[Rfam]
RNA sequence: CCCCUCGAAGGCAGCGCAUCUCCUCCUCCCAGCGCUCCUUCAUCGAUUGGCAACUCUCCUCCUCCCUGUUGCCAAUCCGGAUCAAGAGCCCGAUGCAUCCUCCUCCCGCAUCGGGCUCUUCUU
Numbered sequence: 001c002c003c004c005u006c007g008a009a010g011g012c013a014g015c016g017c018a019u020c021u022c023c024u025c026c027u028c029c030c031a032g033c034g035c036u037c038c039u040u041c042a043u044c045g046a047u048u049g050g051c052a053a054c055u056c057u058c059c060u061c062c063u064c065c066c067u068g069u070u071g072c073c074a075a076u077c078c079g080g081a082u083c084a085a086g087a088g089c090c091c092g093a094u095g096c097a098u099c100c101u102c103c104u105c106c107c108g109c110a111u112c113g114g115g116c117u118c119u120u121c122u123u
Stems, first nucleotide, its partner, number of pairs: 007041003011037001013036005045077010086118011

The record is a 123-nucleotide RNA from Martinezella rhizogenes, which matches "Alphaproteobacterial ar14" in Rfam. The family's RNA type in Rfam is small RNA. It is one of the family's seed sequences. The pairing is the family consensus, mapped onto this sequence. Rfam 15.1 lists 784 matches to the family in 332 species. About the family: Smr14C2 was renamed NfeR1 (Nodule Formation Efficiency RNA) highly expressed in salt stress and during the symbiotic interaction on legume roots.